Rfam assigns this 82-nucleotide RNA sequence from Agrilactobacillus composti to the family "SAM-III riboswitch aptamer (SMK box)". Taxonomically the source falls in Agrilactobacillus composti (Bacteria, Bacillati, Lactobacillales, Lactobacillaceae). For this family Rfam cites "S-adenosylmethionine directly inhibits binding of 30S ribosomal subunits to the SMK box translational riboswitch RNA" (Fuchs et al., Proc Natl Acad Sci U S A, 2007).
RNA sequence: AUAAGUUGACUAUCAUUCCCGAUAGGAUUCGCUGCGUGCGAAGUACCUUGUAACCUACGAAGAGGGGGAAAUAUUUUUUAUG
Numbered sequence: 001a002u003a004a005g006u007u008g009a010c011u012a013u014c015a016u017u018c019c020c021g022a023u024a025g026g027a028u029u030c031g032c033u034g035c036g037u038g039c040g041a042a043g044u045a046c047c048u049u050g051u052a053a054c055c056u057a058c059g060a061a062g063a064g065g066g067g068g069a070a071a072u073a074u075u076u077u078u079u080a081u082g
Stems, first nucleotide, its partner, number of pairs: 016070005024048003028042005054065002